[Rfam]
RNA sequence: AAACUAGCCAAUAAGUCUGCUUACCUGAACAUGUUUCUUCAGAAAUUCAGAGAAAGCUGACAAUAGUAAAACCAUGCUAUGAGCCUUAAGGACACUGAAGUCAUUAAAGUCCCUGAAAAUAACUAUAAGA
Number, nucleotide and partner (000 for none) at each position: 001a000002a000003a000004c000005u059006a058007g057008c000009c000010a000011a000012u000013a000014a000015g000016u043017c042018u041019g040020c000021u000022u000023a000024c000025c000026u000027g000028a000029a000030c000031a000032u000033g000034u000035u000036u000037c000038u000039u000040c019041a018042g017043a016044a000045a000046u000047u000048c000049a000050g000051a000052g000053a000054a000055a000056g000057c007058u006059g005060a000061c000062a000063a000064u000065a000066g000067u000068a000069a000070a000071a000072c000073c000074a120075u000076g000077c000078u000079a000080u000081g000082a000083g110084c109085c000086u107087u106088a105089a104090g000091g102092a101093c100094a000095c000096u000097g000098a000099a000100g093101u092102c091103a000104u089105u088106a087107a086108a000109g084110u083111c000112c000113c000114u000115g000116a000117a000118a000119a000120u074121a000122a000123c000124u000125a000126u000127a000128a000129g000130a000
RNA: Small nucleolar RNA SNORA33
Organism: Phyllostomus discolor